c-di-GMP-I riboswitch aptamer: an 84-nucleotide RNA sequence from Hominimerdicola alba. Rfam describes the family as follows. GEMM was predicted in a large-scale screen for bacterial structured RNA regulatory elements. Its family is annotated with cyclic-di-GMP binding in the Gene Ontology. Pairs were carried over by alignment from the consensus structure, which is taken from published work. A reference for the family is Weinberg et al. (2007), "Identification of 22 candidate structured RNAs in bacteria using the CMfinder comparative genomics pipeline", Nucleic Acids Res. The match comes from Rfam's covariance-model search (77 bits).
RNA sequence: AUAGUAUAAGGGCAAAACUGCUUAAAAGCAGUGACGCAAAGCCAAGGGUCUAAGCCUGUGAAGGUAUGACAGCCGGUUGCCGAG
Numbered sequence: 001a002u003a004g005u006a007u008a009a010g011g012g013c014a015a016a017a018c019u020g021c022u023u024a025a026a027a028g029c030a031g032u033g034a035c036g037c038a039a040a041g042c043c044a045a046g047g048g049u050c051u052a053a054g055c056c057u058g059u060g061a062a063g064g065u066a067u068g069a070c071a072g073c074c075g076g077u078u079g080c081c082g083a084g
Base pairs, nucleotide, nucleotide: 012037013036017032018031019030020029021028022027040078041077042076043075046074047073048070049069050068055064056063057062
Dot-bracket structure: ...........((...((((((....))))))...))..((((..(((((....(((....)))...)))..))))))......